[Rfam]
RNA: nhaA-I RNA
Organism: Teichococcus rhizosphaerae
RNA sequence: GGGUGUUCGCAUCGGACAAGGGCGGGCAGGGAUCAGCGCUGGUCGGGCCGCCAGCG
Numbered sequence: 001g002g003g004u005g006u007u008c009g010c011a012u013c014g015g016a017c018a019a020g021g022g023c024g025g026g027c028a029g030g031g032a033u034c035a036g037c038g039c040u041g042g043u044c045g046g047g048c049c050g051c052c053a054g055c056g
Base pairs, nucleotide, nucleotide: 005027006026007025008024009023010022012020037056038055039054040053041052042051043050